Shown here is a 71-nucleotide sequence from Nocardia otitidiscaviarum, a member of the family "Actino-pnp RNA". The family's consensus secondary structure is taken from published work. By type it is a cis-regulatory element.

[Rfam]
RNA sequence: GUCGGUCUUCGGUAGUGGCUUUUCGGUGCGCCGCACUCGCGCGGCCCGGAGGGCUUCGAUCGAUGACCGCC
Numbered sequence: 001g002u003c004g005g006u007c008u009u010c011g012g013u014a015g016u017g018g019c020u021u022u023u024c025g026g027u028g029c030g031c032c033g034c035a036c037u038c039g040c041g042c043g044g045c046c047c048g049g050a051g052g053g054c055u056u057c058g059a060u061c062g063a064u065g066a067c068c069g070c071c
Base pairs, nucleotide, nucleotide: 001071003069004068005067006066007065009063010062011061012060013059017055018054019053021051022050023049024048025047026046028045029044